[Rfam]
RNA sequence: AGCUGUGAUGAGCCGAAGUAAAGACUGAUCAGGUAUUGUCACCAUCCGUGGUGGUUCUGACCUGCAAGUGAUCAAUUAAUCUUCUCGCUGAGCUG
Numbered sequence: 001a002g003c004u005g006u007g008a009u010g011a012g013c014c015g016a017a018g019u020a021a022a023g024a025c026u027g028a029u030c031a032g033g034u035a036u037u038g039u040c041a042c043c044a045u046c047c048g049u050g051g052u053g054g055u056u057c058u059g060a061c062c063u064g065c066a067a068g069u070g071a072u073c074a075a076u077u078a079a080u081c082u083u084c085u086c087g088c089u090g091a092g093c094u095g
Base pairs, nucleotide, nucleotide: 002093003092038055039054040053041052
This 95-nucleotide sequence from Acipenser ruthenus belongs to the Rfam family "Z30 small nucleolar RNA". The family has 20 seed sequences and 802 matches in Rfam 15.1. The match comes from Rfam's covariance-model search (65 bits).